[Rfam]
RNA sequence: UAACUUCUCAAAGGGGAGUAGCGUUAGGGUAACACCUAAAACAAAGUCGUCAUUUCGUGGAUUUUUUCCACCGGCUUUGUUGACAUGAAUGUAUGUUU
Dot-bracket structure: ........................(((........))).((((((((((.......(((((.....))))))))))))))).................
Rfam assigns this 98-nucleotide RNA sequence from Peribacillus deserti to the family "Manganese Mn2+ riboswitch aptamer (yybP-ykoY)". Lineage of the source: Bacteria > Bacillota > Caryophanales > Bacillaceae > Peribacillus. It scores 48 bits against the family's covariance model. This RNA was originally discovered in E. coli during a large scale screen and was named SraF. The family was later found to exist upstream of related families of protein genes in many bacteria, including the the yybP and ykoK genes in B. subtilis.